The record is a 112-nucleotide RNA sequence from Paenibacillus mucilaginosus, which matches "epsC RNA" in Rfam. The match comes from Rfam's covariance-model search (101 bits).

RNA sequence: AGGUAAUGUCUACUGCACCUUUAUCACUGUAGGCACUCGAUCAUGCUGUGGGCUCGGUGAGCCUUAGACGUCUAUCGUCGGUGGUGUGAUGUGAGGUUGGGUUGAAUGCCCU
Numbered sequence: 001a002g003g004u005a006a007u008g009u010c011u012a013c014u015g016c017a018c019c020u021u022u023a024u025c026a027c028u029g030u031a032g033g034c035a036c037u038c039g040a041u042c043a044u045g046c047u048g049u050g051g052g053c054u055c056g057g058u059g060a061g062c063c064u065u066a067g068a069c070g071u072c073u074a075u076c077g078u079c080g081g082u083g084g085u086g087u088g089a090u091g092u093g094a095g096g097u098u099g100g101g102u103u104g105a106a107u108g109c110c111c112u
Base pairs, nucleotide, nucleotide: 001020002019003018004017007035008034009033010032011031012030013029036095037094038093039092040090041089042088043087044086045085046084047083050064051063052062053061054060055059067079068078069077070076099111100110101109102108
Dot-bracket structure: [[[[..(((((((...]]]]........)))))))((((((((((((..((((((...))))))..((((.....))))...)))))))).))))...((((.....)))).